[Rfam]
DUF3800-VII RNA: a 90-nucleotide RNA. By type it is a small RNA.
RNA sequence: UGCAGGUAAGCGCGGAAGUGGUAGAGGCCGCCUGUAGUGGGUGGCAGCCCCUUUGGGGUGGGAACCUCGGUUUCCGGGACCUGUUUUUCA
Numbered sequence: 001u002g003c004a005g006g007u008a009a010g011c012g013c014g015g016a017a018g019u020g021g022u023a024g025a026g027g028c029c030g031c032c033u034g035u036a037g038u039g040g041g042u043g044g045c046a047g048c049c050c051c052u053u054u055g056g057g058g059u060g061g062g063a064a065c066c067u068c069g070g071u072u073u074c075c076g077g078g079a080c081c082u083g084u085u086u087u088u089c090a
Base pairs, nucleotide, nucleotide: 002084003083004082005081006080007079011077013076014075015074016073021071022070024068025067026066027045028044029043030042031041032040033039048058049057050056